RNA sequence: UAUCAGGUUGGUGCGAAAGUAAUUGUGGUUUUUGCCAUUGAAAGUAAUAGCAAAAACCACAAUUACUUUCACACCAACCUAAUA
Numbered sequence: 001u002a003u004c005a006g007g008u009u010g011g012u013g014c015g016a017a018a019g020u021a022a023u024u025g026u027g028g029u030u031u032u033u034g035c036c037a038u039u040g041a042a043a044g045u046a047a048u049a050g051c052a053a054a055a056a057c058c059a060c061a062a063u064u065a066c067u068u069u070c071a072c073a074c075c076a077a078c079c080u081a082a083u084a
Stems, first nucleotide, its partner, number of pairs: 001084003005080009015070021037048004
RNA: mir-548 microRNA precursor family
Organism: Cercocebus atys